[Rfam]
Nucleotides: 100
Stems, first nucleotide, its partner, number of pairs: 019085007029049007059075005
Number, partner (000 for none) and nucleotide at each position: 001000a002000a003000a004000c005000g006000a007000a008000a009000a010000a011000u012000c013000c014000g015000a016000c017000a018000g019085a020084u021083u022082c023081g024080u025079a026000u027000a028000u029049c030048c031047u032046c033045a034044g035043a036000a037000a038000u039000a040000a041000g042000g043035u044034u045033u046032g047031a048030g049029g050000g051000u052000c053000u054000c055000u056000a057000c058000a059075a060074g061073g062072a063071a064000c065000c066000g067000u068000a069000a070000a071063u072062u073061c074060c075059u076000a077000a078000c079025u080024a081023c082022g083021a084020a085019u086000g087000g088000g089000u090000g091000u092000a093000u094000c095000g096000c097000u098000a099000u100000a

Background
Purine riboswitch aptamer: a 100-nucleotide sequence from Brevibacillus borstelensis. The organism belongs to Brevibacillus borstelensis, within Bacteria. Riboswitches are metabolite binding domains within certain messenger RNAs that serve as precision sensors for their corresponding targets. The match comes from Rfam's covariance-model search (76 bits). Pairs were carried over by alignment from the consensus structure, which is taken from published work.